The family of this 33-nucleotide sequence from Peromyscus maniculatus is "Iron response element I". NCBI's taxonomy places the organism under Eukaryota, Dipnotetrapodomorpha, Boreoeutheria, Cricetidae, Peromyscus maniculatus. Pairs were carried over by alignment from the consensus structure, which is taken from published work. The family has 62 seed sequences and 6,829 matches in Rfam 15.1.
RNA sequence: CUGUCUUGCUUCAACAGUGUUUGGACGGAGCAG
Numbered sequence: 001c002u003g004u005c006u007u008g009c010u011u012c013a014a015c016a017g018u019g020u021u022u023g024g025a026c027g028g029a030g031c032a033g
Base pairs, nucleotide, nucleotide: 001033002032003031004029005028006027008026010025011024012023013022014021015019
Source information:
The match comes from Rfam's covariance-model search (40 bits).